This 88-nucleotide RNA sequence from Georgenia soli belongs to the Rfam family "Glycine riboswitch aptamer".
NCBI's taxonomy places the organism under Bacteria, Bacillati, Actinomycetota, Allobogoriellaceae, Georgenia.

[Rfam]
RNA sequence: UGAGUCGGCACGGGAGAGUCGUCCUCGCGACGCACCGAAGGAGCAACCGCCCCGGCAAUCUCUCAGGUUCCAGCACCGUGUCGAUCAG
Numbered sequence: 001u002g003a004g005u006c007g008g009c010a011c012g013g014g015a016g017a018g019u020c021g022u023c024c025u026c027g028c029g030a031c032g033c034a035c036c037g038a039a040g041g042a043g044c045a046a047c048c049g050c051c052c053c054g055g056c057a058a059u060c061u062c063u064c065a066g067g068u069u070c071c072a073g074c075a076c077c078g079u080g081u082c083g084a085u086c087a088g
Base pairs, nucleotide, nucleotide: 006083007082008081009080010079011078012077013076020032021031022030023029034068035067036066037064038063041062042061043060047055048054